[Rfam]
RNA sequence: GAAGGAGGGCCCUUCGAGGUCGGCAAUCAGGUGUUGAUCUCAAGCCACCGCAAGCUGCUGUUGUCAAAAGCGAUGGUGCUGAUCGCUCGAUUUCGGG
Numbered sequence: 001g002a003a004g005g006a007g008g009g010c011c012c013u014u015c016g017a018g019g020u021c022g023g024c025a026a027u028c029a030g031g032u033g034u035u036g037a038u039c040u041c042a043a044g045c046c047a048c049c050g051c052a053a054g055c056u057g058c059u060g061u062u063g064u065c066a067a068a069a070g071c072g073a074u075g076g077u078g079c080u081g082a083u084c085g086c087u088c089g090a091u092u093u094c095g096g097g
Stems, first nucleotide, its partner, number of pairs: 001015005016041006023034003048096003052092002054080001057077003061073004
Rfam assigns this 97-nucleotide RNA from Rhizobiales bacterium GAS113 to the family "Group II catalytic intron D1-D4-2". On this family, see Bonen and Vogel, Trends Genet 2001: "The ins and outs of group II introns". Pairs were carried over by alignment from the consensus structure. Group II introns are found in rRNA, tRNA and mRNA of organelles in fungi, plants and protists, and also in mRNA in bacteria. Gene Ontology term of the family: Group II intron splicing.